[Rfam]
RNA sequence: AAGCGAUAAUAGCAAAUUUAGUGAAAACUAGAGACGCAAAGCUAUAGGGCCUUCCUUAUAAAAGAUGGCAGCCAGUUACCGAA
Numbered sequence: 001a002a003g004c005g006a007u008a009a010u011a012g013c014a015a016a017u018u019u020a021g022u023g024a025a026a027a028c029u030a031g032a033g034a035c036g037c038a039a040a041g042c043u044a045u046a047g048g049g050c051c052u053u054c055c056u057u058a059u060a061a062a063a064g065a066u067g068g069c070a071g072c073c074a075g076u077u078a079c080c081g082a083a
Base pairs, nucleotide, nucleotide: 012037013036017032018031019030020029021028022027040077041076042075043074047073048072049069050068051067056063057062
This 83-nucleotide RNA sequence from Anaerocolumna aminovalerica belongs to the Rfam family "c-di-GMP-I riboswitch aptamer". The family's consensus secondary structure is taken from published work. The match comes from Rfam's covariance-model search (68 bits). Lineage of the source: Bacteria > Bacillati > Clostridia > Lachnospirales > Anaerocolumna.